[Rfam]
RNA: Selenocysteine transfer RNA
Organism: Desulfoscipio gibsoniae
RNA sequence: GGGGGUGGAUGGUGCCUGGUGGUGCCCCUGGUCUUCAAAACCAGUCCGUGGGGCGGCGAUCCCGUCCCUGGUGAGUUCGAUUCUCACACACUCCC
Numbered sequence: 001g002g003g004g005g006u007g008g009a010u011g012g013u014g015c016c017u018g019g020u021g022g023u024g025c026c027c028c029u030g031g032u033c034u035u036c037a038a039a040a041c042c043a044g045u046c047c048g049u050g051g052g053g054c055g056g057c058g059a060u061c062c063c064g065u066c067c068c069u070g071g072u073g074a075g076u077u078c079g080a081u082u083c084u085c086a087c088a089c090a091c092u093c094c095c
Base pairs, nucleotide, nucleotide: 001095002094003093004092005091006090007089008087011026012025013024014023015022016021028044029043030042031041032040050068051067052066053065072086073085074084075083